[Rfam]
RNA sequence: AGUUGAGAGAUACACCCGCCCACAGGGGACUGUGGGUGACAUCAGGACGGGGCCUCCCCAGCUUCGCCCUGGUCGUGCCUUCGCGCACACAAACCGGAGUCUUCGGCUCCGGGUCUCCUCACCGAUCGGA
Numbered sequence: 001a002g003u004u005g006a007g008a009g010a011u012a013c014a015c016c017c018g019c020c021c022a023c024a025g026g027g028g029a030c031u032g033u034g035g036g037u038g039a040c041a042u043c044a045g046g047a048c049g050g051g052g053c054c055u056c057c058c059c060a061g062c063u064u065c066g067c068c069c070u071g072g073u074c075g076u077g078c079c080u081u082c083g084c085g086c087a088c089a090c091a092a093a094c095c096g097g098a099g100u101c102u103u104c105g106g107c108u109c110c111g112g113g114u115c116u117c118c119u120c121a122c123c124g125a126u127c128g129g130a
Stems, first nucleotide, its partner, number of pairs: 004121004009117002017038009041073006048066006075088004094112007122129002
Dot-bracket structure: ...((((.((......(((((((((....)))))))))..((((((.((((((.......)))))).)))))).((((......)))).....(((((((.....)))))))...))))))((....)).
Shown here is a 130-nucleotide RNA sequence from Streptomyces aurantiacus, a member of the family "Streptomyces RNA 5676". Lineage of the source: Bacteria > Bacillati > Kitasatosporales > Streptomycetaceae > Streptomyces. The family's RNA type in Rfam is small RNA. About the family: Identified by deep sequencing of transcriptome at the end of exponential growth phase. Appears longer on northern blot than sequencing transcript.